Shown here is a 99-nucleotide sequence from Aureimonas altamirensis, a member of the family "rpsB sRNA". Taxonomically the source falls in Aureimonas (Bacteria, Pseudomonadati, Pseudomonadota, Hyphomicrobiales). A reference for the family is Meyer et al. (2009), "Identification of candidate structured RNAs in the marine organism 'Candidatus Pelagibacter ubique'", BMC Genomics. The family has 4 seed sequences and 245 matches in Rfam 15.1.

[Rfam]
RNA sequence: CACACACGGAUAUCGGGUUCUGUCGCGAGGCGGCGGCUCCCACCGGUGGCGGUUCGACCGCUUCUAUCCGUGGAGGUUAAACCGGUCAAAAGGAUAGAU
Numbered sequence: 001c002a003c004a005c006a007c008g009g010a011u012a013u014c015g016g017g018u019u020c021u022g023u024c025g026c027g028a029g030g031c032g033g034c035g036g037c038u039c040c041c042a043c044c045g046g047u048g049g050c051g052g053u054u055c056g057a058c059c060g061c062u063u064c065u066a067u068c069c070g071u072g073g074a075g076g077u078u079a080a081a082c083c084g085g086u087c088a089a090a091a092g093g094a095u096a097g098a099u
Stems, first nucleotide, its partner, number of pairs: 001075001003073001005072007015041002023035001048062006